The record is a 264-nucleotide RNA, which matches "permuted transfer-messenger RNA" in Rfam. Rfam classes the family as a non-coding RNA gene. Bacterial tmRNA, also known as 10Sa RNA or SsrA, is named for its dual tRNA and mRNA-like properties.
[Rfam]
RNA sequence: GUGUCUUAUUAGGCUUAUCAAUCACUGUUAGGACGAGGGUUCGACUCCCUCCAGCUCCACGGUCAGAAGCAUAGAGGUUCGACUCCUCUUGGCAAGGGUAUAAACCACUCCUAGGUUAAGAGCCGCAAAGCUUCCAAGCAGGUGUGAAGCCUGCAUUAGGGGCUGCUUGGAUUUGACUGGCAAUUAGAGAGAUAAGAUAGGUUCGUUGUGUGUUUAAAUGGCAAUAAUUUUGUCACAGACUAUACUCAACUAGCAGUUGCGUAA
Numbered sequence: 001g002u003g004u005c006u007u008a009u010u011a012g013g014c015u016u017a018u019c020a021a022u023c024a025c026u027g028u029u030a031g032g033a034c035g036a037g038g039g040u041u042c043g044a045c046u047c048c049c050u051c052c053a054g055c056u057c058c059a060c061g062g063u064c065a066g067a068a069g070c071a072u073a074g075a076g077g078u079u080c081g082a083c084u085c086c087u088c089u090u091g092g093c094a095a096g097g098g099u100a101u102a103a104a105c106c107a108c109u110c111c112u113a114g115g116u117u118a119a120g121a122g123c124c125g126c127a128a129a130g131c132u133u134c135c136a137a138g139c140a141g142g143u144g145u146g147a148a149g150c151c152u153g154c155a156u157u158a159g160g161g162g163c164u165g166c167u168u169g170g171a172u173u174u175g176a177c178u179g180g181c182a183a184u185u186a187g188a189g190a191g192a193u194a195a196g197a198u199a200g201g202u203u204c205g206u207u208g209u210g211u212g213u214u215u216a217a218a219u220g221g222c223a224a225u226a227a228u229u230u231u232g233u234c235a236c237a238g239a240c241u242a243u244a245c246u247c248a249a250c251u252a253g254c255a256g257u258u259g260c261g262u263a264a
Stems, first nucleotide, its partner, number of pairs: 001204001003202003015192002026182006035051005052165007